A member of the RNA family "Molybdenum/Tungsten riboswitch aptamer (Moco RNA motif)" from Mordavella massiliensis, 121 nucleotides long. The base pairs follow the family's consensus structure, which is taken from published work. Taxonomically the source falls in Mordavella (Bacteria, Bacillati, Clostridia, Clostridiaceae).
RNA sequence: CAGAUUGCAGGAAUUCGAGCCUGUCUGCCUAAAACUGAACACGUCAUGGCAGCAGGCCAAAGGGGAUCUUUUGAAAAGAAGAUGCCUUCCGGUUUUGAAAAGAAUAUCCGCAAAUGGAACA
Numbered sequence: 001c002a003g004a005u006u007g008c009a010g011g012a013a014u015u016c017g018a019g020c021c022u023g024u025c026u027g028c029c030u031a032a033a034a035c036u037g038a039a040c041a042c043g044u045c046a047u048g049g050c051a052g053c054a055g056g057c058c059a060a061a062g063g064g065g066a067u068c069u070u071u072u073g074a075a076a077a078g079a080a081g082a083u084g085c086c087u088u089c090c091g092g093u094u095u096u097g098a099a100a101a102g103a104a105u106a107u108c109c110g111c112a113a114a115u116g117g118a119a120c121a
Base pairs, nucleotide, nucleotide: 004115006113011108012107013105014104015103016102019057020056021055022054023053025052026051027050028049029048034044035043062087063086064085066083067082068081069080070079071078072077088098089097